[Rfam]
Nucleotides: 092
Stems, first nucleotide, its partner, number of pairs: 001092004
Number, partner (000 for none) and nucleotide at each position: 001092g002091g003090c004089c005000a006000g007000u008000g009000a010000u011000g012000u013000g014000a015000g016000a017000a018000a019000a020000u021000a022000u023000u024000u025000g026000c027000u028000a029000c030000u031000c032000u033000u034000g035000a036000u037000g038000g039000g040000a041000u042000u043000c044000a045000u046000a047000g048000c049000a050000a051000a052000u053000c054000c055000c056000c057000a058000g059000c060000u061000g062000a063000u064000g065000a066000u067000u068000c069000c070000u071000a072000u073000c074000c075000a076000c077000c078000a079000a080000g081000a082000u083000c084000u085000c086000u087000g088000a089004g090003g091002c092001c
Small nucleolar RNA SNORD24: a 92-nucleotide RNA sequence from Hevea brasiliensis. The literature on the family includes a 2001 paper in Proc Natl Acad Sci U S A by Hirose and Steitz, "Position within the host intron is critical for efficient processing of box C/D snoRNAs in mammalian cells". The match comes from Rfam's covariance-model search (66 bits). Rfam 15.1 lists 2,843 matches to the family in 1,188 species. Lineage of the source: Eukaryota > Euphorbiaceae > Crotonoideae > Micrandreae > Hevea. The family's consensus secondary structure was predicted with PFOLD.